The family of this 189-nucleotide RNA is "RT-16 RNA". Rfam's curators put it in the seed alignment.

[Rfam]
RNA sequence: CCUAGAAAUUAUCCUGAUUUCGAAUCAGGGAUAAUAAAGUGGGCUACAUGCAUAUUCAUUAAGGCAUGGAUGAUUGAAUCUAUAUGCCGAUGAAAUACAAUAACAAUAGUUAGUAGUAAUGACAAGCCUUGGGGAAGUUUUGAACGAAAAUUAGAGUUAUGGUGAGACUUGAUGAGUGUGCUAUGCCUG
Numbered sequence: 001c002c003u004a005g006a007a008a009u010u011a012u013c014c015u016g017a018u019u020u021c022g023a024a025u026c027a028g029g030g031a032u033a034a035u036a037a038a039g040u041g042g043g044c045u046a047c048a049u050g051c052a053u054a055u056u057c058a059u060u061a062a063g064g065c066a067u068g069g070a071u072g073a074u075u076g077a078a079u080c081u082a083u084a085u086g087c088c089g090a091u092g093a094a095a096u097a098c099a100a101u102a103a104c105a106a107u108a109g110u111u112a113g114u115a116g117u118a119a120u121g122a123c124a125a126g127c128c129u130u131g132g133g134g135a136a137g138u139u140u141u142g143a144a145c146g147a148a149a150a151u152u153a154g155a156g157u158u159a160u161g162g163u164g165a166g167a168c169u170u171g172a173u174g175a176g177u178g179u180g181c182u183a184u185g186c187c188u189g
Stems, first nucleotide, its partner, number of pairs: 001043004008035008050181010068169002071166001100160005107153005116145002
Rfam classes the family as a small RNA.